[Rfam]
Shown here is a 96-nucleotide sequence from Cicer arietinum, a member of the family "Small nucleolar RNA R64/Z200 family". For this family Rfam cites "Experimental RNomics: identification of 140 candidates for small non-messenger RNAs in the plant Arabidopsis thaliana" (Marker et al., Curr Biol, 2002). Pairs were carried over by alignment from the consensus structure, which was predicted with PFOLD. Rfam 15.1 lists 748 matches to the family in 228 species. It scores 93 bits against the family's covariance model.
RNA sequence: UUUCUGUUGUGAUGAACUAAGAUGUAAAUUCACAUGUCAGACUUCAGAGAUUUUCAUAAUCUAUGAGAAUAACAAUUCUUAUUCACUGAGCAGAAA
Numbered sequence: 001u002u003u004c005u006g007u008u009g010u011g012a013u014g015a016a017c018u019a020a021g022a023u024g025u026a027a028a029u030u031c032a033c034a035u036g037u038c039a040g041a042c043u044u045c046a047g048a049g050a051u052u053u054u055c056a057u058a059a060u061c062u063a064u065g066a067g068a069a070u071a072a073c074a075a076u077u078c079u080u081a082u083u084c085a086c087u088g089a090g091c092a093g094a095a096a
Stems, first nucleotide, its partner, number of pairs: 001096007049061004